[Rfam]
RNA sequence: GGUUUCUAUUGGUGUAAAUCGUAAAUCCAAGUGUCUUAAUUUUCAAUUUAAGAUGUUCCCAUUGGUAGCAAAUGGUUAUCCAUUAAGCAGGGAAAAUAUUAUU
Numbered sequence: 001g002g003u004u005u006c007u008a009u010u011g012g013u014g015u016a017a018a019u020c021g022u023a024a025a026u027c028c029a030a031g032u033g034u035c036u037u038a039a040u041u042u043u044c045a046a047u048u049u050a051a052g053a054u055g056u057u058c059c060c061a062u063u064g065g066u067a068g069c070a071a072a073u074g075g076u077u078a079u080c081c082a083u084u085a086a087g088c089a090g091g092g093a094a095a096a097u098a099u100u101a102u103u
Base pairs, nucleotide, nucleotide: 009030010029011028012027057092058091059090061083062082064080065079066078067077068076069075
The record is a 103-nucleotide RNA sequence from Platycarya strobilacea, which matches "Plastid-rps12 3UTR RNA" in Rfam.
From the family's description: Plastid rpl20 is a non-coding RNA (ncRNA) recognised in plastids. It was found in the three prime untranslated region (3UTR) of rps12 gene, its 3UTR location sugest a role in transcript maduration.
By type it is a cis-regulatory element.
For this family Rfam cites "Retrograde signaling in plants: A critical review focusing on the GUN pathway and beyond" (Richter et al., Plant Commun, 2023).
Rfam 15.1 lists 1,710 matches to the family in 1,426 species.